[Rfam]
RNA sequence: AUAUCUGGUAAUGUAGUCAAAUAUCAGCUGGUAAUUCUGGGAUUAAACUGUAGCCCAGGAUUCUUGCUGGUAUCCGGCUACGAACCAGA
Numbered sequence: 001a002u003a004u005c006u007g008g009u010a011a012u013g014u015a016g017u018c019a020a021a022u023a024u025c026a027g028c029u030g031g032u033a034a035u036u037c038u039g040g041g042a043u044u045a046a047a048c049u050g051u052a053g054c055c056c057a058g059g060a061u062u063c064u065u066g067c068u069g070g071u072a073u074c075c076g077g078c079u080a081c082g083a084a085c086c087a088g089a
Stems, first nucleotide, its partner, number of pairs: 013081006021073008030064002034061008

The family of this 89-nucleotide RNA from Vespula pensylvanica is "mir-283 microRNA precursor family". A search with the family's covariance model found it, with a score of 72 bits. Rfam links the family to the GO terms RISC complex and miRNA-mediated post-transcriptional gene silencing. Rfam 15.1 lists 98 matches to the family in 95 species. A reference for the family is Stark et al. (2007), "Systematic discovery and characterization of fly microRNAs using 12 Drosophila genomes", Genome Res.